Record summary:
Rfam assigns this 68-nucleotide RNA from Erpetoichthys calabaricus to the family "Small nucleolar RNA SNORD75". Rfam classes the family as a C/D-box small nucleolar RNA. A search with the family's covariance model found it, with a score of 65 bits.
RNA sequence: AGCCAAUGAUGAGUUUGUGUGUAAGAGUAGUGGACAGAAGUGAUUUCUGAUAAAGUAUUUCUGAGGCU
Numbered sequence: 001a002g003c004c005a006a007u008g009a010u011g012a013g014u015u016u017g018u019g020u021g022u023a024a025g026a027g028u029a030g031u032g033g034a035c036a037g038a039a040g041u042g043a044u045u046u047c048u049g050a051u052a053a054a055g056u057a058u059u060u061c062u063g064a065g066g067c068u
Base pairs, nucleotide, nucleotide: 001068002067003066004065
The family has 5 seed sequences and 767 matches in Rfam 15.1.